[Rfam]
RNA sequence: UGUCGAGGAAAUCAUCGACAGUUAACUGCAGCCGGUUUUUUAAUUCCUCGGCAGUUAACUGCCAAGUGGGCAU
Numbered sequence: 001u002g003u004c005g006a007g008g009a010a011a012u013c014a015u016c017g018a019c020a021g022u023u024a025a026c027u028g029c030a031g032c033c034g035g036u037u038u039u040u041u042a043a044u045u046c047c048u049c050g051g052c053a054g055u056u057a058a059c060u061g062c063c064a065a066g067u068g069g070g071c072a073u
Stems, first nucleotide, its partner, number of pairs: 012069002015066001017063001019061011

This 73-nucleotide RNA from Medicago truncatula belongs to the Rfam family "MIR2629 microRNA precursor family".
Rfam links the family to the GO terms RISC complex and miRNA-mediated post-transcriptional gene silencing.
NCBI's taxonomy places the organism under Eukaryota, Streptophytina, Spermatophyta, fabids, Medicago.